[Rfam]
The record is a 316-nucleotide RNA sequence from Torulaspora delbrueckii, which matches "RNase MRP" in Rfam. The family's consensus secondary structure is taken from published work. Lineage of the source: Eukaryota > Ascomycota > saccharomyceta > Saccharomycotina > Torulaspora. It is annotated as a ribozyme. Rfam describes the family as follows. RNase MRP is an enzymatically active ribonucleoprotein with two distinct roles in eukaryotes. In mitochondria it plays a direct role in the initiation of mitochondrial DNA replication. In the nucleus it is involved in precursor rRNA processing, where it cleaves the internal transcribed spacer 1 between 18S and 5.8S rRNAs. Despite distinct functions, RNase MRP has been shown to be evolutionarily related to RNase P. Like eukaryotic RNase P, RNase MRP is not catalytically active without associated protein subunits.
RNA sequence: CAUGGUCAAAGAAUCGUCACUGUUCGAAGCUUGCAAAACUGGAGUGGUUCAUACACUCAAUCAAUGCUUUGGGUAGAAAGUCUCCGACCAGACCGUAUGCGGAAAACGUAAUGAGAUUUAAAAAUUUUACAAUCUUUAAAUCAACUCAUUAAGUGGACUGGGGAUACUUGUAUUUUCAGCCCGCUUUCCAACCUGUAUACUCCUUUGAGUUGCAGUGCUUUUCGGUAUGGGAAUCUCGCUAGAUUUCAAACCAUAGUUAUGACGAUUGUUCAGUUUUUGCUGAAUAACCCAAUGGAGCUUACUUUUCUUGGCUCAU
Numbered sequence: 001c002a003u004g005g006u007c008a009a010a011g012a013a014u015c016g017u018c019a020c021u022g023u024u025c026g027a028a029g030c031u032u033g034c035a036a037a038a039c040u041g042g043a044g045u046g047g048u049u050c051a052u053a054c055a056c057u058c059a060a061u062c063a064a065u066g067c068u069u070u071g072g073g074u075a076g077a078a079a080g081u082c083u084c085c086g087a088c089c090a091g092a093c094c095g096u097a098u099g100c101g102g103a104a105a106a107c108g109u110a111a112u113g114a115g116a117u118u119u120a121a122a123a124a125u126u127u128u129a130c131a132a133u134c135u136u137u138a139a140a141u142c143a144a145c146u147c148a149u150u151a152a153g154u155g156g157a158c159u160g161g162g163g164a165u166a167c168u169u170g171u172a173u174u175u176u177c178a179g180c181c182c183g184c185u186u187u188c189c190a191a192c193c194u195g196u197a198u199a200c201u202c203c204u205u206u207g208a209g210u211u212g213c214a215g216u217g218c219u220u221u222u223c224g225g226u227a228u229g230g231g232a233a234u235c236u237c238g239c240u241a242g243a244u245u246u247c248a249a250a251c252c253a254u255a256g257u258u259a260u261g262a263c264g265a266u267u268g269u270u271c272a273g274u275u276u277u278u279g280c281u282g283a284a285u286a287a288c289c290c291a292a293u294g295g296a297g298c299u300u301a302c303u304u305u306u307c308u309u310g311g312c313u314c315a316u
Base pairs, nucleotide, nucleotide: 002316003315004313005312006311007310008309009308011307012306013266014265015264016263017262018261024072025071026070027069028068029067030066042058043057044056045055046054078300079299080298082297083296084295085294098110099109100108101107160177161176162175163174164173165172179237185233186232187231188230189229190228191226192225193224199210200209201208202207268285269284270283271282272281273280